About this RNA: The record is a 115-nucleotide RNA sequence from Actinacidiphila glaucinigra, which matches "Glycine riboswitch aptamer" in Rfam. The source organism's lineage runs through Bacteria, Actinomycetes, Kitasatosporales, Streptomycetaceae and Actinacidiphila.

RNA sequence: CUCUGGAAAGCAGGAAAGGGCGGCACAAACCGUGCGCGGCUCCUUCCUCACCGACGGUGAAAGCCGUCCCGGCGCGUGUGCGGGACGGUGAAGCUCUCAGGUUCAGAUGACAGAG
Numbered sequence: 001c002u003c004u005g006g007a008a009a010g011c012a013g014g015a016a017a018g019g020g021c022g023g024c025a026c027a028a029a030c031c032g033u034g035c036g037c038g039g040c041u042c043c044u045u046c047c048u049c050a051c052c053g054a055c056g057g058u059g060a061a062a063g064c065c066g067u068c069c070c071g072g073c074g075c076g077u078g079u080g081c082g083g084g085a086c087g088g089u090g091a092a093g094c095u096c097u098c099a100g101g102u103u104c105a106g107a108u109g110a111c112a113g114a115g
Stems, first nucleotide, its partner, number of pairs: 001115005012048004050102003053098002057096001059094001063089009